[Rfam]
RNA sequence: UACAGAACAGGAAAUGGUGUCUUCCUGCAGGAACCGCCCUUUAAAAAGGCUGAUGGCGCCUAUUGGAAU
Numbered sequence: 001u002a003c004a005g006a007a008c009a010g011g012a013a014a015u016g017g018u019g020u021c022u023u024c025c026u027g028c029a030g031g032a033a034c035c036g037c038c039c040u041u042u043a044a045a046a047a048g049g050c051u052g053a054u055g056g057c058g059c060c061u062a063u064u065g066g067a068a069u
Stems, first nucleotide, its partner, number of pairs: 010025004016060006036050003

Shown here is a 69-nucleotide RNA from Dyadobacter sediminis, a member of the family "Fluoride riboswitch aptamer (crcB RNA motif)". Lineage of the source: Bacteria > Pseudomonadati > Bacteroidota > Cytophagia > Dyadobacter.